[Rfam]
RNA: 2dG-I riboswitch aptamer (M. florum)
Organism: Mesoplasma corruscae
RNA sequence: ACUUACACAUAGCAACAUAUUGGGUUGCUGUCCUGCCUUAGACCUAUCUAAGACUGUAAGA
Numbered sequence: 001a002c003u004u005a006c007a008c009a010u011a012g013c014a015a016c017a018u019a020u021u022g023g024g025u026u027g028c029u030g031u032c033c034u035g036c037c038u039u040a041g042a043c044c045u046a047u048c049u050a051a052g053a054c055u056g057u058a059a060g061a
Stems, first nucleotide, its partner, number of pairs: 002060006008035001011029006022044002030036001037052006